This 47-nucleotide RNA from Rhodopirellula sp. MGV belongs to the Rfam family "Guanidine-II riboswitch aptamer (mini-ykkC)". NCBI's taxonomy places the organism under Bacteria, Pseudomonadati, Planctomycetota, Planctomycetia, Rhodopirellula.
RNA sequence: AAGUGGGGACGACCCCACCGCUCCAAUUACUCUCAGGGACGACCCUG
Numbered sequence: 001a002a003g004u005g006g007g008g009a010c011g012a013c014c015c016c017a018c019c020g021c022u023c024c025a026a027u028u029a030c031u032c033u034c035a036g037g038g039a040c041g042a043c044c045c046u047g
Base pairs, nucleotide, nucleotide: 003018004017005016006015007014008013034047035046036045037044038043
The literature on the family includes a 2007 paper in Nucleic Acids Res by Weinberg et al., "Identification of 22 candidate structured RNAs in bacteria using the CMfinder comparative genomics pipeline".